[Rfam]
RNA: int-alpA RNA
Organism: Gemmataceae bacterium
Nucleotides: 066
Base pairs, nucleotide, nucleotide: 002053003052004051005050006049007048011023012022013021014020029044030043031042032041033040035065036064037063038062
Number, partner (000 for none) and nucleotide at each position: 001000g002053u003052c004051g005050c006049g007048g008000c009000u010000a011023g012022g013021g014020u015000c016000u017000g018000g019000a020014g021013c022012c023011c024000g025000a026000a027000a028000c029044g030043c031042u032041g033040g034000c035065c036064c037063u038062c039000g040033c041032c042031g043030g044029c045000c046000u047000a048007c049006c050005g051004c052003g053002a054000a055000u056000c057000a058000u059000a060000a061000u062038g063037a064036g065035g066000c